[Rfam]
RNA sequence: CGUUGGGUCCGGGCCCCUCUGACGGUCGAGGCGUUGACCGUGAUGUCGGACCCCUUCU
Numbered sequence: 001c002g003u004u005g006g007g008u009c010c011g012g013g014c015c016c017c018u019c020u021g022a023c024g025g026u027c028g029a030g031g032c033g034u035u036g037a038c039c040g041u042g043a044u045g046u047c048g049g050a051c052c053c054c055u056u057c058u
Stems, first nucleotide, its partner, number of pairs: 006052007022041008
Dot-bracket structure: .....(((((((.........((((((((....))))))))....)))))))......

Shown here is a 58-nucleotide sequence from Methylobacterium sp. BTF04, a member of the family "terC RNA". It scores 65 bits against the family's covariance model. Pairs were carried over by alignment from the consensus structure, which is taken from published work. By type it is a cis-regulatory element.